[Rfam]
RNA sequence: GGGAAUAUUGGGCAAACCCAGUGAAAGCUGGUGACGCAAAGCUAUAGGGUCUACGUUUCUCCGCACGGAAGCAUGACAGCCAGUUGCAGCA
Numbered sequence: 001g002g003g004a005a006u007a008u009u010g011g012g013c014a015a016a017c018c019c020a021g022u023g024a025a026a027g028c029u030g031g032u033g034a035c036g037c038a039a040a041g042c043u044a045u046a047g048g049g050u051c052u053a054c055g056u057u058u059c060u061c062c063g064c065a066c067g068g069a070a071g072c073a074u075g076a077c078a079g080c081c082a083g084u085u086g087c088a089g090c091a
Base pairs, nucleotide, nucleotide: 012037013036018031019030020029021028022027040085041084042083043082047081048080049077050076051075056071057070058069059068
Dot-bracket structure: ...........((....(((((....)))))....))..((((...(((((....((((........))))...)))..))))))......
A member of the RNA family "c-di-GMP-I riboswitch aptamer" from Firmicutes bacterium CAG:114, 91 nucleotides long. The family's consensus secondary structure is taken from published work. It scores 61 bits against the family's covariance model. Lineage of the source: Bacteria > Bacillati > Bacillota.